[Rfam]
RNA sequence: AUAUGUGUAUGGGGGCCAUAGCAGAGGUGUUUACGAUGCGACCCCUAUCAGGUAAUACCUGCUAAUAUCUAUGAAUUCUGCU
Numbered sequence: 001a002u003a004u005g006u007g008u009a010u011g012g013g014g015g016c017c018a019u020a021g022c023a024g025a026g027g028u029g030u031u032u033a034c035g036a037u038g039c040g041a042c043c044c045c046u047a048u049c050a051g052g053u054a055a056u057a058c059c060u061g062c063u064a065a066u067a068u069c070u071a072u073g074a075a076u077u078c079u080g081c082u
Base pairs, nucleotide, nucleotide: 012045013044014043015042017040020082021081022080023079024078025077026076027039028038029037050070051069052068053067054066
Dot-bracket structure: ...........[[[[.[..((((((((((.......)))].]]]]....(((((...........))))).....)))))))
A member of the RNA family "Mammalian CPEB3 ribozyme" from Alligator mississippiensis, 82 nucleotides long. The base pairs follow the family's consensus structure, which is taken from published work. For this family Rfam cites "Autocatalytic RNA cleavage in the human beta-globin pre-mRNA promotes transcription termination" (Teixeira et al., Nature, 2004). Its family is annotated with RNA nuclease activity in the Gene Ontology. The match comes from Rfam's covariance-model search (40 bits).